[Rfam]
RNA: Small nucleolar RNA SNORA33
RNA sequence: AAGCCGGCCAAUGAAUCUGCUUAGCUGAAUGUGUUUCUGCAGAAAUGUAAAACAUGCUGGCAAUAGUAAUGUCAUGUUACGAGCCUUAAAGACAUUGUGAGGUCCCUGAAAAUGGCUACAAGA
Numbered sequence: 001a002a003g004c005c006g007g008c009c010a011a012u013g014a015a016u017c018u019g020c021u022u023a024g025c026u027g028a029a030u031g032u033g034u035u036u037c038u039g040c041a042g043a044a045a046u047g048u049a050a051a052a053c054a055u056g057c058u059g060g061c062a063a064u065a066g067u068a069a070u071g072u073c074a075u076g077u078u079a080c081g082a083g084c085c086u087u088a089a090a091g092a093c094a095u096u097g098u099g100a101g102g103u104c105c106c107u108g109a110a111a112a113u114g115g116c117u118a119c120a121a122g123a
Stems, first nucleotide, its partner, number of pairs: 003061005016043005071116004083103006